Notes: Rfam assigns this 74-nucleotide sequence from Silurus meridionalis to the family "mir-153 microRNA precursor family". The organism belongs to Silurus, within Eukaryota. Pairs were carried over by alignment from the consensus structure, which was predicted with RNAalifold. On this family, see Tesfaye et al., Mol Reprod Dev 2009: "Identification and expression profiling of microRNAs during bovine oocyte maturation using heterologous approach". The match comes from Rfam's covariance-model search (55 bits). Gene Ontology terms of the family: miRNA-mediated post-transcriptional gene silencing and RISC complex.

[Rfam]
RNA sequence: UAAACGGUGAAUUUUGUUAAUAUGCAACUAUAUGUCCGAAUAUAUAGUUGCAUAUUAACAAAAUUCACUGUUUA
Numbered sequence: 001u002a003a004a005c006g007g008u009g010a011a012u013u014u015u016g017u018u019a020a021u022a023u024g025c026a027a028c029u030a031u032a033u034g035u036c037c038g039a040a041u042a043u044a045u046a047g048u049u050g051c052a053u054a055u056u057a058a059c060a061a062a063a064u065u066c067a068c069u070g071u072u073u074a
Base pairs, nucleotide, nucleotide: 002073003072004071005070006069007068008067009066010065011064012063013062014061015060016059017058018057019056020055023052024051025050026049027048028047029046